[Rfam]
RNA sequence: UUAAGUUAUGAGUCAAUUCCCGAUAGGAUUCACGCACACGUGAAGCUGCCUUGUAACCAGAACGACGUCGAGAUUAUCGGUCAACUCGGACGUUCACUAUAUCUAGGGGGAAUAUUCCAUU
Numbered sequence: 001u002u003a004a005g006u007u008a009u010g011a012g013u014c015a016a017u018u019c020c021c022g023a024u025a026g027g028a029u030u031c032a033c034g035c036a037c038a039c040g041u042g043a044a045g046c047u048g049c050c051u052u053g054u055a056a057c058c059a060g061a062a063c064g065a066c067g068u069c070g071a072g073a074u075u076a077u078c079g080g081u082c083a084a085c086u087c088g089g090a091c092g093u094u095c096a097c098u099a100u101a102u103c104u105a106g107g108g109g110g111a112a113u114a115u116u117c118c119a120u121u
Base pairs, nucleotide, nucleotide: 017112018111019110020109021108025051026050027049029044030043031042032041033040057107058106